[Rfam]
Nucleotides: 557
Stems, first nucleotide, its partner, number of pairs: 009025005027547004032543006039400006045393002047358001052356003056353003061100003066097002070092001073090007107311003116236008126228002131224007139173004147164001149162005179204006187196003209216002237283003244274003249271008286308004290301004313334005336347004364390001366389003372385005403434004413425004439484006448474001456466001491536005502531005512519002
Number, partner (000 for none) and nucleotide at each position: 001000a002000c003000a004000a005000u006000g007000g008000a009025g010024a011023g012022u013021u014000u015000g016000a017000u018000c019000c020000u021013g022012g023011c024010u025009c026000a027547g028546g029545a030544u031000g032543a033542a034541c035540g036539c037538u038000a039400g040399c041398g042397g043396c044395a045393g046392g047358c048000c049000u050000a051000a052356u053355a054354c055000a056353u057352g058351c059000a060000a061100g062099u063098u064000g065000a066097a067096c068000g069000g070092u071000a072000u073090c074089a075088u076087c077086g078085g079084g080000c081000u082000u083000g084079c085078c086077u087076g088075a089074u090073g091000a092070g093000a094000g095000a096067g097066u098063g099062g100061c101000g102000c103000a104000c105000g106000g107311g108310u109309g110000c111000g112000u113000a114000a115000c116236g117235c118234g119233u120232a121231u122230g123229c124000a125000a126228c127227c128000u129000g130000c131224c132223u133222g134221u135220u136219a137218c138000c139173g140172g141171g142170g143000g144000a145000u146000a147164g148000c149162c150161c151160g152159g153158g154000g155000a156000a157000a158153c159152c160151c161150g162149g163000a164147u165000u166000a167000a168000u169000a170142c171141c172140c173139c174000a175000u176000g177000g178000u179204a180203u181202u182201g183200g184199g185000a186000g187196a188195u189194g190000g191000c192000a193000u194189c195188a196187u197000c198000a199184c200183c201182c202181g203180a204179u205000u206000a207000a208000a209216g210215a211000u212000u213000u214000a215210u216209c217000g218137g219136u220135a221134a222133c223132a224131g225000a226000u227127g228126g229123g230122c231121a232120u233119g234118c235117g236116u237283a238282g239281g240000a241000u242000u243000a244274g245273u246272u247000a248000g249271u250270u251269g252268g253267u254266a255265a256264g257000g258000u259000a260000a261000c262000g263000g264256c265255u266254u267253a268252c269251c270250a271249a272246g273245g274244c275000g276000a277000u278000g279000a280000u281239c282238c283237u284000u285000a286308g287307g288306g289305g290301u291300u292299c293298u294000g295000a296000g297000a298293g299292g300291a301290a302000g303000g304000u305289c306288c307287c308286c309109c310108a311107c312000a313334c314333u315332g316331g317330c318000a319000c320000u321000g322000a323000g324000a325000c326000a327000c328000g329000g330317g331316c332315c333314a334313g335000a336347c337346u338345c339344c340000u341000a342000c343000g344339g345338g346337a347336g348000g349000c350000a351058g352057c353056a354054g355053u356052a357000g358047g359000g360000a361000a362000u363000a364390u365000u366389g367388g368387g369000c370000a371000a372385u373384g374383g375382a376381c377000g378000g379000a380000a381376g382375u383374c384373u385372g386000a387368c388367c389366c390364a391000g392046c393045c394000a395044u396043g397042c398041c399040g400039c401000g402000u403434g404433c405432a406431g407000g408000a409000a410000g411000a412000c413425g414424g415423c416422c417000u418000u419000a420000c421000g422416g423415g424414u425413u426000g427000u428000a429000a430000a431406c432405u433404g434403c435000u436000u437000u438000u439484a440483u441482c442481a443480g444479g445000g446000a447000a448474g449000a450000a451000a452000a453000a454000g455000c456466c457000a458000c459000u460000g461000c462000g463000g464000u465000g466456g467000a468000a469000a470000u471000u472000g473000c474448c475000g476000g477000u478000a479444c480443c481442u482441g483440a484439u485000g486000a487000a488000u489000a490000a491536g492535c493534a494533c495532c496000g497000g498000c499000u500000a501000a502531c503530u504529c505528c506527g507000u508000g509000c510000c511000a512519g513518c514000a515000g516000c517000c518513g519512c520000g521000g522000u523000a524000a525000u526000a527506c528505g529504g530503a531502g532495g533494g534493u535492g536491c537000g538037a539036g540035c541034g542033u543032u544030g545029u546028c547027c548000g549000g550000a551000u552000u553000u554000a555000u556000u557000g